The family of this 194-nucleotide RNA sequence from Arachis hypogaea is "Plant small nucleolar RNA U3".
NCBI's taxonomy places the organism under Eukaryota, eudicotyledons, fabids, dalbergioids sensu lato, Arachis.
The family's consensus secondary structure is taken from published work.
It scores 118 bits against the family's covariance model.
Clan: U3 clan.
Rfam classes the family as a C/D-box small nucleolar RNA.
Its family is annotated with RNA processing and nucleolus in the Gene Ontology.
Small nucleolar RNAs (snoRNAs) are involved in the processing and modification of rRNA in the nucleolus. There are two main classes of snoRNAs: the box C/D class, and the box H/ACA class.
[Rfam]
RNA sequence: ACAUCUGUUCAAGUAAGGUCGUACAUCUGUAUCCUUGAGUUCUAAGGAGACAGGAACCAAAGUCUGGGGGAUGAACUAUGACUGUGCGAUCAGAGCGUGAUUAACAGUUCUGUGGUGCAUGCCAUCUGAACGGUGGAGGAUCGUUCUCGCUGCUACCUUGUAGUCGAGAUGGUCGCACGGUGUUCUGACAGACC
Numbered sequence: 001a002c003a004u005c006u007g008u009u010c011a012a013g014u015a016a017g018g019u020c021g022u023a024c025a026u027c028u029g030u031a032u033c034c035u036u037g038a039g040u041u042c043u044a045a046g047g048a049g050a051c052a053g054g055a056a057c058c059a060a061a062g063u064c065u066g067g068g069g070g071a072u073g074a075a076c077u078a079u080g081a082c083u084g085u086g087c088g089a090u091c092a093g094a095g096c097g098u099g100a101u102u103a104a105c106a107g108u109u110c111u112g113u114g115g116u117g118c119a120u121g122c123c124a125u126c127u128g129a130a131c132g133g134u135g136g137a138g139g140a141u142c143g144u145u146c147u148c149g150c151u152g153c154u155a156c157c158u159u160g161u162a163g164u165c166g167a168g169a170u171g172g173u174c175g176c177a178c179g180g181u182g183u184u185c186u187g188a189c190a191g192a193c194c
Base pairs, nucleotide, nucleotide: 027053028052029051030050032048033047034046035045036044037043062193063192064191065190066189081181082180083179084178085177086176087175088174089173090172091171092170094145095144096143097142104134105133107131108130109129110128112126113124114123115122116121147167148166149165152164153163154162155161156160